[Rfam]
RNA sequence: GCAGGGCACACCGGUGCGUGCCUGUAAGCCAAAUCUCUGGGCUGCUAGAACGUCGGAAUCGGUUCGCUGUUGGAUAUCCACUGUGAGUUCACAUGUAUCCAUUCUCAGUCCAAUCUUAGGGCCAAGUCAACAGCCUGUGUGCGUGGAAGCGCAUGCAGACGGUUGUCAAAGACUAGAGAAACGCCUCAGGCUGGCAACAGAGCAGGGAAAAUCUAGCGCUUGGUUCGGAAGGUCGGGUCGCUGGGAUCCAAGGGAUGUGGGUUCAUAGUGCCAACAGCGGGCAGAGACCGCCGCCAUUCGUU
Numbered sequence: 001g002c003a004g005g006g007c008a009c010a011c012c013g014g015u016g017c018g019u020g021c022c023u024g025u026a027a028g029c030c031a032a033a034u035c036u037c038u039g040g041g042c043u044g045c046u047a048g049a050a051c052g053u054c055g056g057a058a059u060c061g062g063u064u065c066g067c068u069g070u071u072g073g074a075u076a077u078c079c080a081c082u083g084u085g086a087g088u089u090c091a092c093a094u095g096u097a098u099c100c101a102u103u104c105u106c107a108g109u110c111c112a113a114u115c116u117u118a119g120g121g122c123c124a125a126g127u128c129a130a131c132a133g134c135c136u137g138u139g140u141g142c143g144u145g146g147a148a149g150c151g152c153a154u155g156c157a158g159a160c161g162g163u164u165g166u167c168a169a170a171g172a173c174u175a176g177a178g179a180a181a182c183g184c185c186u187c188a189g190g191c192u193g194g195c196a197a198c199a200g201a202g203c204a205g206g207g208a209a210a211a212u213c214u215a216g217c218g219c220u221u222g223g224u225u226c227g228g229a230a231g232g233u234c235g236g237g238u239c240g241c242u243g244g245g246a247u248c249c250a251a252g253g254g255a256u257g258u259g260g261g262u263u264c265a266u267a268g269u270g271c272c273a274a275c276a277g278c279g280g281g282c283a284g285a286g287a288c289c290g291c292c293g294c295c296a297u298u299c300g301u302u
Stems, first nucleotide, its partner, number of pairs: 001045003004023006011016001028042003048299003052295001054293003060290005065279009079270016096253001103246007110236002113233005119226009128165004133160001135158010167171001173216005184207003191200003
Dot-bracket structure: (((((((((.(....).))))))....(((.........))))))..(((.(.(((...((((((((((((((.....((((((((((((((((.(......(((((((((.(((((.(((((((((((((.(.((((((((((....)))))))))).).)))).(...).(((((......(((....(((....)))....)))....))))).)))))))))..))))).))...)))))))......).)))))))))))))))))))))))))......)))))))).).)))...

Metazoan signal recognition particle RNA: a 302-nucleotide sequence from Powellomyces hirtus. The signal recognition particle (SRP) is a universally conserved ribonucleoprotein. By type it is a non-coding RNA gene. The source organism's lineage runs through Eukaryota, Opisthokonta, Spizellomycetales, Powellomycetaceae and Powellomyces.